The record is a 78-nucleotide RNA sequence from Streptomyces yokosukanensis, which matches "ASpks TB sRNA" in Rfam.
The literature on the family includes a 2009 paper in Mol Microbiol by Arnvig and Young, "Identification of small RNAs in Mycobacterium tuberculosis".
It scores 66 bits against the family's covariance model.
Taxonomically the source falls in Streptomyces (Bacteria, Bacillati, Actinomycetota, Actinomycetes).
By type it is an antisense RNA.
RNA sequence: CUUCAACGAACCCAGCCACAACGGCUCCCCACCCGCACCACGCUCCUGCCCGUACGUCGACAACAGCGCCUGCACCUC
Numbered sequence: 001c002u003u004c005a006a007c008g009a010a011c012c013c014a015g016c017c018a019c020a021a022c023g024g025c026u027c028c029c030c031a032c033c034c035g036c037a038c039c040a041c042g043c044u045c046c047u048g049c050c051c052g053u054a055c056g057u058c059g060a061c062a063a064c065a066g067c068g069c070c071u072g073c074a075c076c077u078c
Stems, first nucleotide, its partner, number of pairs: 014026004035073002041068002047062002050059001052057001